Shown here is a 38-nucleotide sequence from Candidatus Fukatsuia symbiotica, a member of the family "JUMPstart RNA".
The family's RNA type in Rfam is cis-regulatory element.
The organism belongs to Candidatus Fukatsuia, within Bacteria.
The family has 128 seed sequences and 288 matches in Rfam 15.1.
RNA sequence: GAGCGUAUUGGCGGCUGUAAGUCAAGGGCGGUAGCGUG
Numbered sequence: 001g002a003g004c005g006u007a008u009u010g011g012c013g014g015c016u017g018u019a020a021g022u023c024a025a026g027g028g029c030g031g032u033a034g035c036g037u038g
Stems, first nucleotide, its partner, number of pairs: 008025005